[Rfam]
RNA sequence: UUCUUAUCAAGAGUGGUGGAGGGACUGGCCCUAUGAAACCCGGCAACCAGAAGUUUGAUUAACUUCAAGGUGCUAAAUCCUGCAGGUGAACCUGAUAGAUAAGUG
Numbered sequence: 001u002u003c004u005u006a007u008c009a010a011g012a013g014u015g016g017u018g019g020a021g022g023g024a025c026u027g028g029c030c031c032u033a034u035g036a037a038a039c040c041c042g043g044c045a046a047c048c049a050g051a052a053g054u055u056u057g058a059u060u061a062a063c064u065u066c067a068a069g070g071u072g073c074u075a076a077a078u079c080c081u082g083c084a085g086g087u088g089a090a091c092c093u094g095a096u097a098g099a100u101a102a103g104u105g
Stems, first nucleotide, its partner, number of pairs: 001105001003103006013041001015040003021031003025082001027080002042074004047070002050066004078097001083094004
Shown here is a 105-nucleotide sequence from Clostridium fallax, a member of the family "SAM riboswitch aptamer (S box leader)". A search with the family's covariance model found it, with a score of 89 bits. The organism belongs to Clostridium, within Bacteria.